The family of this 75-nucleotide RNA sequence from Halovulum dunhuangense is "Makes More Granules Regulator RNA (mmgR)". Rfam 15.1 lists 1,791 matches to the family in 918 species.
[Rfam]
RNA sequence: AUCAUACGCCCGUUCCGGGCGUUUCCUCCCCAGACUUGGGCCGCGCCUCGUGCGCGGCCUUUUUUUGUGGAGAGA
Numbered sequence: 001a002u003c004a005u006a007c008g009c010c011c012g013u014u015c016c017g018g019g020c021g022u023u024u025c026c027u028c029c030c031c032a033g034a035c036u037u038g039g040g041c042c043g044c045g046c047c048u049c050g051u052g053c054g055c056g057g058c059c060u061u062u063u064u065u066u067g068u069g070g071a072g073a074g075a
Base pairs, nucleotide, nucleotide: 008020009019010018011017038060039059040058041057042056043055044054045053046052